Rfam assigns this 66-nucleotide RNA sequence from Marinigracilibium pacificum to the family "DUF805 RNA". A search with the family's covariance model found it, with a score of 72 bits. The organism belongs to Marinigracilibium, within Bacteria. Pairs were carried over by alignment from the consensus structure, which is taken from published work. It is annotated as a cis-regulatory element.
[Rfam]
RNA sequence: UAUUAAUGGAGUCCGGAAACCAUCAAAAACGGGGCGAAUCUGAAAAGCCAAACGAGUAGGAAUAAU
Numbered sequence: 001u002a003u004u005a006a007u008g009g010a011g012u013c014c015g016g017a018a019a020c021c022a023u024c025a026a027a028a029a030c031g032g033g034g035c036g037a038a039u040c041u042g043a044a045a046a047g048c049c050a051a052a053c054g055a056g057u058a059g060g061a062a063u064a065a066u
Stems, first nucleotide, its partner, number of pairs: 006023004033049003040060002
Dot-bracket structure: .....((((..........)))).........(((....[[.....))).........]]......